[Rfam]
RNA sequence: AUGCACGGUGCCAACCCCGGGCUUUUCUGAGAAAUCGAUUGAAGAAAAUAGCCCCAAUGCCUGUGCUAGAUUCAAGUAGCCAUUCAGUGUUACAGAUCACGAAUUUUUAAUGUAUGAUUUGCGUCAAGAGAUGGCCAAAUUU
Numbered sequence: 001a002u003g004c005a006c007g008g009u010g011c012c013a014a015c016c017c018c019g020g021g022c023u024u025u026u027c028u029g030a031g032a033a034a035u036c037g038a039u040u041g042a043a044g045a046a047a048a049u050a051g052c053c054c055c056a057a058u059g060c061c062u063g064u065g066c067u068a069g070a071u072u073c074a075a076g077u078a079g080c081c082a083u084u085c086a087g088u089g090u091u092a093c094a095g096a097u098c099a100c101g102a103a104u105u106u107u108u109a110a111u112g113u114a115u116g117a118u119u120u121g122c123g124u125c126a127a128g129a130g131a132u133g134g135c136c137a138a139a140u141u142u
Base pairs, nucleotide, nucleotide: 003066004065005064006063007062008061010060011059019054020053021052022051023050024048025047026045027044028043079135080134081133082132083131085130088126089125091123093121094120095119096118099113100112101111
small nucleolar RNA snoR134: a 142-nucleotide RNA sequence from Rhynchospora breviuscula. The source organism's lineage runs through Eukaryota, Mesangiospermae, Cyperaceae, Rhynchosporeae and Rhynchospora. The literature on the family includes a 2009 paper in Nucleic Acids Res by Chen and Wu, "Mining small RNA sequencing data: a new approach to identify small nucleolar RNAs in Arabidopsis". Its family is annotated with RNA processing and nucleolus in the Gene Ontology.